[Rfam]
RNA sequence: GGGCCGAUGAUGCGAACCAUGCUCCUAUGGUAGACCCCUGUGCGGAGGAUUUCCUAAACAUAAUUUCCCAAGAGCUGAGGCCC
Numbered sequence: 001g002g003g004c005c006g007a008u009g010a011u012g013c014g015a016a017c018c019a020u021g022c023u024c025c026u027a028u029g030g031u032a033g034a035c036c037c038c039u040g041u042g043c044g045g046a047g048g049a050u051u052u053c054c055u056a057a058a059c060a061u062a063a064u065u066u067c068c069c070a071a072g073a074g075c076u077g078a079g080g081c082c083c
Stems, first nucleotide, its partner, number of pairs: 002082004
About this RNA
The record is an 83-nucleotide RNA, which matches "Small nucleolar RNA Z168/Z174" in Rfam. The family's consensus secondary structure was predicted with PFOLD. By type it is a C/D-box small nucleolar RNA. For this family Rfam cites "The high diversity of snoRNAs in plants: identification and comparative study of 120 snoRNA genes from Oryza sativa" (Chen et al., Nucleic Acids Res, 2003). It is one of the family's seed sequences.